[Rfam]
RNA sequence: UUACAUAUUCGGCACAUCUGUUGAAAAGCAGAGUCGCAAAACUUUAGGGGCUAACCCAUUUGGAAACGAAUGGUAUGCCAGCCAGUUGCACAU
Numbered sequence: 001u002u003a004c005a006u007a008u009u010c011g012g013c014a015c016a017u018c019u020g021u022u023g024a025a026a027a028g029c030a031g032a033g034u035c036g037c038a039a040a041a042c043u044u045u046a047g048g049g050g051c052u053a054a055c056c057c058a059u060u061u062g063g064a065a066a067c068g069a070a071u072g073g074u075a076u077g078c079c080a081g082c083c084a085g086u087u088g089c090a091c092a093u
Stems, first nucleotide, its partner, number of pairs: 012037002017032006040087004047083002049079003056073007

This 93-nucleotide RNA from Hungatella hathewayi belongs to the Rfam family "c-di-GMP-I riboswitch aptamer". Lineage of the source: Bacteria > Bacillati > Bacillota > Lachnospiraceae > Hungatella hathewayi. The match comes from Rfam's covariance-model search (64 bits). Rfam describes the family as follows. GEMM was predicted in a large-scale screen for bacterial structured RNA regulatory elements. Genes associated with GEMM are involved in a diverse array of functions, including chemotaxis regulation, signal transduction, secretion and chitin.